[Rfam]
RNA sequence: GGUCAUGAGUGCCAGCGCAAAGCCCCGGCUUGCUGGACGGCAACCCUCCUUCGCGGUGGGGUGCCCCGGGUGAGGACCAGGCCGCACCGUCCGGUGGGGCAAGCGCGAGAC
Numbered sequence: 001g002g003u004c005a006u007g008a009g010u011g012c013c014a015g016c017g018c019a020a021a022g023c024c025c026c027g028g029c030u031u032g033c034u035g036g037a038c039g040g041c042a043a044c045c046c047u048c049c050u051u052c053g054c055g056g057u058g059g060g061g062u063g064c065c066c067c068g069g070g071u072g073a074g075g076a077c078c079a080g081g082c083c084g085c086a087c088c089g090u091c092c093g094g095u096g097g098g099g100c101a102a103g104c105g106c107g108a109g110a111c
Base pairs, nucleotide, nucleotide: 001078002077003076004075009038012036013035014034015033016032021030022029039065040064041063044061045060046059048056049055081100082099083098085096086095087094088093
SAM (S-adenosyl methionine) riboswitch aptamer: a 111-nucleotide RNA sequence from Intrasporangium chromatireducens. On this family, see Weinberg et al., RNA 2008: "The aptamer core of SAM-IV riboswitches mimics the ligand-binding site of SAM-I riboswitches". Lineage of the source: Bacteria > Actinomycetes > Micrococcales > Intrasporangium > Intrasporangium chromatireducens. Rfam links the family to the GO terms regulation of gene expression and S-adenosylmethionine metabolic process. A search with the family's covariance model found it, with a score of 104 bits.